[Rfam]
RNA sequence: UUUUGCAAGAUGAAGCCAAUUCGGAUGUAAAGGAGUUCGUCUCCAAUUUCCGAGAGCGCAUAAACCUCAUGUGGAUUUUUCCGUUGCCUUCCUUCUGAACUUUGAC
Numbered sequence: 001u002u003u004u005g006c007a008a009g010a011u012g013a014a015g016c017c018a019a020u021u022c023g024g025a026u027g028u029a030a031a032g033g034a035g036u037u038c039g040u041c042u043c044c045a046a047u048u049u050c051c052g053a054g055a056g057c058g059c060a061u062a063a064a065c066c067u068c069a070u071g072u073g074g075a076u077u078u079u080u081c082c083g084u085u086g087c088c089u090u091c092c093u094u095c096u097g098a099a100c101u102u103u104g105a106c
Stems, first nucleotide, its partner, number of pairs: 001104001022083004
Description:
Rfam assigns this 106-nucleotide RNA sequence from Macrolepiota fuliginosa to the family "Small nucleolar RNA Z13/snr52". The match comes from Rfam's covariance-model search (65 bits). NCBI's taxonomy places the organism under Eukaryota, Basidiomycota, Agaricomycetidae, Macrolepiota, Macrolepiota fuliginosa. Rfam classes the family as a C/D-box small nucleolar RNA.